[Rfam]
RNA sequence: ACAAGAACAAUAACAAGCGAAACACCCAUAACAAGAACAACACGAAUCGGCUCACGCAUAACAAGAACAAGACGGCAUGAGGCGCAGCUAACUGAUUCUUUUGAAGAGGUAUUGUUUUCGGGCUUUGCCCUCGCAACCGGCGAAAAGAACAACACUGCGAUCAAGCAGCUCGGCACUGGUUGGACCUUCGGUCAUCUCAAUACGGCGUUCAAAGCAAUCCGUUUGCUCUUGGCCCCCUUCUGGGGGGCGAUCCCACGAAGCCAUUGGCAUCACGGGUAGGGCGUUCAACAAAAACAAGAAGCCCGCUAGAAAAACAACAACGAGCAGAUCAGACUUCCGGGGGAGCUUAGGCUCCCCUAGUGGUUUCCGGGGUUCCGAAACCGCUCCA
Number, nucleotide and partner (000 for none) at each position: 001a000002c000003a000004a000005g000006a000007a000008c000009a000010a000011u000012a000013a000014c000015a000016a000017g000018c000019g000020a000021a000022a000023c000024a000025c000026c000027c000028a000029u000030a000031a000032c000033a000034a000035g000036a000037a000038c000039a000040a000041c000042a000043c000044g000045a000046a000047u000048c084049g083050g000051c081052u080053c079054a078055c000056g000057c000058a000059u000060a000061a000062c000063a000064a000065g000066a000067a000068c000069a000070a000071g000072a000073c000074g000075g000076c000077a000078u054079g053080a052081g051082g000083c049084g048085c000086a000087g000088c000089u000090a000091a000092c000093u000094g000095a000096u000097u000098c000099u214100u213101u212102u211103g210104a000105a000106g000107a000108g000109g000110u000111a000112u000113u207114g206115u205116u000117u000118u000119c000120g000121g000122g000123c000124u000125u000126u000127g000128c000129c000130c000131u000132c000133g000134c182135a181136a180137c179138c178139g177140g176141c000142g000143a000144a000145a000146a000147g000148a000149a000150c000151a000152a000153c000154a000155c168156u167157g166158c165159g000160a000161u000162c000163a000164a000165g158166c157167a156168g155169c000170u000171c000172g000173g000174c000175a000176c140177u139178g138179g137180u136181u135182g134183g000184a000185c000186c000187u000188u000189c000190g000191g000192u000193c000194a000195u000196c000197u000198c000199a000200a000201u000202a000203c000204g000205g115206c114207g113208u000209u000210c103211a102212a101213a100214g099215c000216a000217a000218u000219c000220c000221g000222u000223u000224u000225g000226c000227u000228c000229u000230u000231g000232g248233c247234c246235c245236c244237c000238u000239u000240c000241u000242g000243g000244g236245g235246g234247g233248c232249g000250a000251u000252c000253c000254c000255a000256c000257g000258a000259a000260g000261c000262c000263a000264u000265u000266g000267g000268c000269a000270u000271c000272a000273c370274g000275g368276g367277u000278a365279g304280g303281g302282c301283g000284u000285u000286c000287a000288a000289c000290a000291a000292a000293a000294a000295c000296a000297a000298g000299a000300a000301g282302c281303c280304c279305g000306c000307u000308a000309g000310a000311a000312a000313a000314a000315c000316a000317a000318c000319a000320a000321c000322g000323a364324g000325c000326a000327g000328a000329u000330c000331a000332g000333a000334c000335u000336u000337c000338c000339g358340g357341g356342g355343g354344a353345g352346c351347u000348u000349a000350g000351g346352c345353u344354c343355c342356c341357c340358u339359a000360g000361u000362g000363g000364u323365u278366u000367c276368c275369g000370g273371g000372g000373u000374u000375c000376c000377g000378a000379a000380a000381c000382c000383g000384c000385u000386c000387c000388a000

This 388-nucleotide RNA sequence from Pseudomonas sp. URIL14HWK12:I9 belongs to the Rfam family "Pseudomonas sRNA CrcZ". A reference for the family is Livny et al. (2006), "Identification of 17 Pseudomonas aeruginosa sRNAs and prediction of sRNA-encoding genes in 10 diverse pathogens using the bioinformatic tool sRNAPredict2", Nucleic Acids Res. The match comes from Rfam's covariance-model search (264 bits).